[Rfam]
RNA sequence: GUCUUGGACAGGAUAUCAUCAUAUACUGUAAGUUCAUAAUUAAGACACUACAGUAUAGAUGAUGUACUAUUCAGGGCCU
Numbered sequence: 001g002u003c004u005u006g007g008a009c010a011g012g013a014u015a016u017c018a019u020c021a022u023a024u025a026c027u028g029u030a031a032g033u034u035c036a037u038a039a040u041u042a043a044g045a046c047a048c049u050a051c052a053g054u055a056u057a058g059a060u061g062a063u064g065u066a067c068u069a070u071u072c073a074g075g076g077c078c079u
Stems, first nucleotide, its partner, number of pairs: 007071002010068002013065008022057009032046003
The family of this 79-nucleotide RNA from Chanos chanos is "mir-144 microRNA precursor family".
The family's consensus secondary structure was predicted with RNAalifold.
Gene Ontology terms of the family: RISC complex and miRNA-mediated post-transcriptional gene silencing.
For this family Rfam cites "Identification of microRNAs from different tissues of chicken embryo and adult chicken" (Xu et al., FEBS Lett, 2006).